[Rfam]
RNA sequence: GUAGUUACUGUAAACAUCCUACACUCAGCUAUAGCCUGUAUGGAUGGCUGGGGAGAGGGUGUUUACUUUGACUGG
Number, nucleotide and partner (000 for none) at each position: 001g000002u074003a073004g072005u071006u070007a000008c000009u000010g066011u065012a064013a063014a062015c061016a060017u059018c058019c057020u000021a000022c055023a000024c052025u051026c050027a049028g048029c047030u046031a000032u000033a000034g000035c000036c000037u000038g000039u000040a000041u000042g000043g000044a000045u000046g030047g029048c028049u027050g026051g025052g024053g000054a000055g022056a000057g019058g018059g017060u016061g015062u014063u013064u012065a011066c010067u000068u000069u000070g006071a005072c004073u003074g002075g000